The family of this 68-nucleotide sequence from Metabacillus sediminilitoris is "Bacillaceae-1 RNA". NCBI's taxonomy places the organism under Bacteria, Bacillati, Caryophanales, Bacillaceae, Metabacillus. A search with the family's covariance model found it, with a score of 65 bits. Rfam classes the family as a small RNA. Rfam 15.1 lists 5,721 matches to the family in 247 species. The family's consensus secondary structure is taken from published work.
[Rfam]
RNA sequence: GGCUAAGGAACUUCUACUAAGAACUGUCACGUCCUGUGACGAACGUAGAAGUCAGCACAUCAUGUGCA
Numbered sequence: 001g002g003c004u005a006a007g008g009a010a011c012u013u014c015u016a017c018u019a020a021g022a023a024c025u026g027u028c029a030c031g032u033c034c035u036g037u038g039a040c041g042a043a044c045g046u047a048g049a050a051g052u053c054a055g056c057a058c059a060u061c062a063u064g065u066g067c068a
Base pairs, nucleotide, nucleotide: 011051012050013049014048015047016046017045026040027039028038029037030036055067056066057065058064